[Rfam]
RNA sequence: CCUCCACCCUCCCCGCACAGGAGGGUGGACCGGGGACCCGGCACUCUCUGCCCUGACUGUUCCGGCUCCCCCAGACCGGCCCACGGGACCGCACACCCGACGGCCGGUGGUUGCUCCGGGCUGCGGUGCCGGGCGGGUUGAGGGUCCCACCCAGGCGC
Numbered sequence: 001c002c003u004c005c006a007c008c009c010u011c012c013c014c015g016c017a018c019a020g021g022a023g024g025g026u027g028g029a030c031c032g033g034g035g036a037c038c039c040g041g042c043a044c045u046c047u048c049u050g051c052c053c054u055g056a057c058u059g060u061u062c063c064g065g066c067u068c069c070c071c072c073a074g075a076c077c078g079g080c081c082c083a084c085g086g087g088a089c090c091g092c093a094c095a096c097c098c099g100a101c102g103g104c105c106g107g108u109g110g111u112u113g114c115u116c117c118g119g120g121c122u123g124c125g126g127u128g129c130c131g132g133g134c135g136g137g138u139u140g141a142g143g144g145u146c147c148c149a150c151c152c153a154g155g156c157g158c
Stems, first nucleotide, its partner, number of pairs: 003029004008024005032071005038065004043060002045056002076107006085098003112128004117123002131152003135148003
The record is a 158-nucleotide RNA from Streptomyces albus, which matches "Streptomyces sRNA scr5239" in Rfam. For this family Rfam cites "Streptomyces coelicolor sRNA scr5239 inhibits agarase expression by direct base pairing to the dagA coding region" (Vockenhuber and Suess, Microbiology, 2012). The family's RNA type in Rfam is small RNA. It is one of the family's seed sequences.